Record summary: This 99-nucleotide RNA sequence from Elaeis guineensis belongs to the Rfam family "Small nucleolar RNA snoR8a". Its family is annotated with RNA processing and nucleolus in the Gene Ontology. By type it is a C/D-box small nucleolar RNA. The family has 7 seed sequences and 956 matches in Rfam 15.1. On this family, see Brown et al., RNA 2001: "Multiple snoRNA gene clusters from Arabidopsis".
Nucleotides: 099
Stems, first nucleotide, its partner, number of pairs: 003099002006096002
Number, partner (000 for none) and nucleotide at each position: 001000c002000c003099u004098g005000g006096u007095g008000c009000c010000a011000u012000g013000a014000u015000u016000a017000u018000a019000a020000a021000a022000a023000a024000a025000a026000a027000a028000u029000u030000c031000c032000u033000c034000g035000u036000u037000c038000u039000g040000a041000c042000u043000g044000c045000u046000c047000u048000a049000a050000c051000c052000a053000u054000g055000g056000g057000c058000a059000u060000g061000a062000c063000a064000g065000a066000c067000u068000a069000a070000u071000a072000u073000u074000a075000c076000u077000u078000g079000c080000u081000g082000g083000a084000u085000a086000g087000u088000a089000u090000a091000u092000g093000a094000g095007c096006a097000c098004c099003a